[Rfam]
RNA sequence: GGCUUUCGAAGGAUAGCCACCCUUCCUCUUUCAGGCUCUAGUUUAUUAUUAUAAAACUAGAGCCUGAAAGAGGAAGGGUGGCUAUCCUUCGAAAGCC
Numbered sequence: 001g002g003c004u005u006u007c008g009a010a011g012g013a014u015a016g017c018c019a020c021c022c023u024u025c026c027u028c029u030u031u032c033a034g035g036c037u038c039u040a041g042u043u044u045a046u047u048a049u050u051a052u053a054a055a056a057c058u059a060g061a062g063c064c065u066g067a068a069a070g071a072g073g074a075a076g077g078g079u080g081g082c083u084a085u086c087c088u089u090c091g092a093a094a095g096c097c
Base pairs, nucleotide, nucleotide: 002096003095006092007091009089010088011087012086013085014084015083016082017081018080019079020078021077023075024074025073026072027071028070029069030068031067032066034064035063037061038060039059040058041057042056043055044054
The family of this 97-nucleotide sequence from Armadillidium nasatum is "mir-1684 microRNA precursor family". The match comes from Rfam's covariance-model search (60 bits). Its family is annotated with miRNA-mediated post-transcriptional gene silencing and RISC complex in the Gene Ontology.